[Rfam]
A member of the RNA family "Small nucleolar RNA snoR138" from Trifolium medium, 148 nucleotides long. The match comes from Rfam's covariance-model search (69 bits).
RNA sequence: UUUGCCUCCGAAUAACUAAAAUGGCGAUUCAUUACAUUUUAGUUCAGACAGAGGCAUAUAAAUAACACCUGAAUUGGUUUGAGGGUACUGAAAGCAAUCAUUUUCAGUUCCAUUUUUAUACCUGUAGUUUGUUCCAAUUCAGACAUUC
Numbered sequence: 001u002u003u004g005c006c007u008c009c010g011a012a013u014a015a016c017u018a019a020a021a022u023g024g025c026g027a028u029u030c031a032u033u034a035c036a037u038u039u040u041a042g043u044u045c046a047g048a049c050a051g052a053g054g055c056a057u058a059u060a061a062a063u064a065a066c067a068c069c070u071g072a073a074u075u076g077g078u079u080u081g082a083g084g085g086u087a088c089u090g091a092a093a094g095c096a097a098u099c100a101u102u103u104u105c106a107g108u109u110c111c112a113u114u115u116u117u118a119u120a121c122c123u124g125u126a127g128u129u130u131g132u133u134c135c136a137a138u139u140c141a142g143a144c145a146u147u148c
Stems, first nucleotide, its partner, number of pairs: 003056006014044008023035001070141006077117001081113001083111001085110001088107006124135001126133001